The family of this 83-nucleotide RNA sequence from Sarcophilus harrisii is "Small nucleolar RNA SNORD103/SNORD85". Pairs were carried over by alignment from the consensus structure. Taxonomically the source falls in Sarcophilus (Eukaryota, Opisthokonta, Deuterostomia, Chordata). Rfam 15.1 lists 1,349 matches to the family in 595 species. The literature on the family includes a 2001 paper in EMBO J by Huttenhofer et al., "RNomics: an experimental approach that identifies 201 candidates for novel, small, non-messenger RNAs in mouse". The family's RNA type in Rfam is C/D-box small nucleolar RNA.
[Rfam]
RNA sequence: ACUGGCAAGGAUGACACUCUUGCCCUCACUGAGACAAUUCAUUGAUUAAAACCCUUGAUUGUACUCAUUGGUUCUGAGCCAGU
Numbered sequence: 001a002c003u004g005g006c007a008a009g010g011a012u013g014a015c016a017c018u019c020u021u022g023c024c025c026u027c028a029c030u031g032a033g034a035c036a037a038u039u040c041a042u043u044g045a046u047u048a049a050a051a052c053c054c055u056u057g058a059u060u061g062u063a064c065u066c067a068u069u070g071g072u073u074c075u076g077a078g079c080c081a082g083u
Stems, first nucleotide, its partner, number of pairs: 001083006